A member of the RNA family "Ribosomal protein L10 leader" from Spiroplasma helicoides, 155 nucleotides long.
The family's RNA type in Rfam is cis-regulatory leader.
This family is a putative r-protein leader autoregulatory structure found in B. subtilis and other low-GC Gram-positive bacteria.
For this family Rfam cites "Diverse mechanisms for regulating ribosomal protein synthesis in Escherichia coli" (Zengel and Lindahl, Prog Nucleic Acid Res Mol Biol, 1994).
The base pairs follow the family's consensus structure, which was predicted with CMfinder.
RNA sequence: AUAUAUAUGCUAUUCGUACCGAAGAAAGUAACUGGGUAUUACCCUUAAUUUGUUACCGAGGAAUGAAACAUCAUUUAUAAGAUCUAUUCUAAUAGAUUAUUAGUGUGUUUUUAAUUAACCUCGGAAAUAACUUUUCGAGGUUUUAUUUUGAUUUU
Numbered sequence: 001a002u003a004u005a006u007a008u009g010c011u012a013u014u015c016g017u018a019c020c021g022a023a024g025a026a027a028g029u030a031a032c033u034g035g036g037u038a039u040u041a042c043c044c045u046u047a048a049u050u051u052g053u054u055a056c057c058g059a060g061g062a063a064u065g066a067a068a069c070a071u072c073a074u075u076u077a078u079a080a081g082a083u084c085u086a087u088u089c090u091a092a093u094a095g096a097u098u099a100u101u102a103g104u105g106u107g108u109u110u111u112u113a114a115u116u117a118a119c120c121u122c123g124g125a126a127a128u129a130a131c132u133u134u135u136c137g138a139g140g141u142u143u144u145a146u147u148u149u150g151a152u153u154u155u
Stems, first nucleotide, its partner, number of pairs: 028056005034044003119140009
Dot-bracket structure: ...........................(((((.(((.....))).......)))))..............................................................(((((((((....)))))))))...............